RNA sequence: ACCGGUCUCCGGUAGUGGCCCCCGGGCAUCCGGCAGCACGCCGACCCGCCCGGGCGCUUCGAUCGAAGACCGGC
Numbered sequence: 001a002c003c004g005g006u007c008u009c010c011g012g013u014a015g016u017g018g019c020c021c022c023c024g025g026g027c028a029u030c031c032g033g034c035a036g037c038a039c040g041c042c043g044a045c046c047c048g049c050c051c052g053g054g055c056g057c058u059u060c061g062a063u064c065g066a067a068g069a070c071c072g073g074c
Base pairs, nucleotide, nucleotide: 002073003072004071005070006069007068010065011064012063013062017058018057019056021054022053023052024051025050026049027048029044030043